6S / SsrS RNA: a 185-nucleotide RNA from Thiohalocapsa sp. PB-PSB1. E. coli 6S RNA was the first non coding RNA to be sequenced, but its function was unknown until recently. It consists of 184 nucleotides that fold into an extended hairpin structure with a large single-stranded internal bulge. The 6S RNA specifically associates with RNA polymerase holoenzyme containing the sigma70 specificity factor. This interaction represses expression from a sigma70-dependent promoter during stationary phase. 6S RNA homologs have recently been identified in most bacterial genomes.
RNA sequence: CAUCCCCUGCAGUGUGCGACAGCGGCCUGGGUAUUUUCUUGAGCCUAAUGCAUACCCCGGGGACACUCAAACUGGGCCGUUGUGCAUGUCCGCCCCGAGCGGGAAGCCUGAAGCCCCAUCGAGAGUCCCCACUUGAACCGCUUGGUUCAAGAACGAAGGAUCGCAUCGGCACAGGCGGGGGAUGU
Number, nucleotide and partner (000 for none) at each position: 001c000002a183003u182004c181005c180006c179007c178008u177009g176010c175011a000012g172013u171014g170015u169016g000017c168018g167019a166020c000021a000022g000023c000024g000025g000026c000027c000028u000029g000030g000031g000032u000033a000034u000035u000036u153037u152038c151039u000040u149041g148042a147043g146044c145045c144046u000047a000048a000049u000050g000051c000052a000053u000054a000055c000056c000057c000058c000059g130060g129061g128062g000063a126064c125065a000066c123067u122068c121069a000070a000071a000072c000073u118074g117075g116076g115077c000078c113079g000080u000081u000082g000083u000084g107085c106086a000087u000088g000089u103090c102091c101092g100093c099094c000095c000096c000097g000098a000099g093100c092101g091102g090103g089104a000105a000106g085107c084108c000109u000110g000111a000112a000113g078114c000115c076116c075117c074118a073119u000120c000121g068122a067123g066124a000125g064126u063127c000128c061129c060130c059131a000132c000133u000134u000135g000136a000137a000138c000139c000140g000141c000142u000143u000144g045145g044146u043147u042148c041149a040150a000151g038152a037153a036154c000155g000156a000157a000158g000159g000160a000161u000162c000163g000164c000165a000166u019167c018168g017169g015170c014171a013172c012173a000174g000175g010176c009177g008178g007179g006180g005181g004182a003183u002184g000185u000